The family of this 110-nucleotide RNA sequence from Sphingomonas sp. Leaf198 is "TPP riboswitch aptamer (THI element)".
[Rfam]
RNA sequence: CACCCCACCCCGGGGGAGCGCUUAUCCGCGCUUGAGAGGAAGGCAGGAGCCUUCGACCCGCUGAACCUGAUCCGGUUGAUACCGGCGGAGGGAGGGAGCGGUCGCCACAG
Numbered sequence: 001c002a003c004c005c006c007a008c009c010c011c012g013g014g015g016g017a018g019c020g021c022u023u024a025u026c027c028g029c030g031c032u033u034g035a036g037a038g039g040a041a042g043g044c045a046g047g048a049g050c051c052u053u054c055g056a057c058c059c060g061c062u063g064a065a066c067c068u069g070a071u072c073c074g075g076u077u078g079a080u081a082c083c084g085g086c087g088g089a090g091g092g093a094g095g096g097a098g099c100g101g102u103c104g105c106c107a108c109a110g
Stems, first nucleotide, its partner, number of pairs: 006098001008096003011060004016054001017032005040053004066091003072085004

Background:
The organism belongs to Sphingomonas, within Bacteria.